[Rfam]
RNA: U2 spliceosomal RNA
Organism: Thyridium curvatum
RNA sequence: UUAGCUCUCUUUGCCUUUUGGCUUAGAUCAAGUGUAGUAUCUGUUCUUUUCAGUUUAAUCUCUGAAACUGCUCUACGGAGUAGAUUUUUUGAUUAUUCUAAUUUUUGUCCUUCGGAGGACGGUCCUCUGGGCUUGCCCAUGAUCGACCUCCACUGUGUCCUCGGUAUCACACUACCUCCGAGAGACGCGAACCAUU
Numbered sequence: 001u002u003a004g005c006u007c008u009c010u011u012u013g014c015c016u017u018u019u020g021g022c023u024u025a026g027a028u029c030a031a032g033u034g035u036a037g038u039a040u041c042u043g044u045u046c047u048u049u050u051c052a053g054u055u056u057a058a059u060c061u062c063u064g065a066a067a068c069u070g071c072u073c074u075a076c077g078g079a080g081u082a083g084a085u086u087u088u089u090u091g092a093u094u095a096u097u098c099u100a101a102u103u104u105u106u107g108u109c110c111u112u113c114g115g116a117g118g119a120c121g122g123u124c125c126u127c128u129g130g131g132c133u134u135g136c137c138c139a140u141g142a143u144c145g146a147c148c149u150c151c152a153c154u155g156u157g158u159c160c161u162c163g164g165u166a167u168c169a170c171a172c173u174a175c176c177u178c179c180g181a182g183a184g185a186c187g188c189g190a191a192c193c194a195u196u
Stems, first nucleotide, its partner, number of pairs: 008027003013022003048067006068083006114151005120145002128139004154189006160182005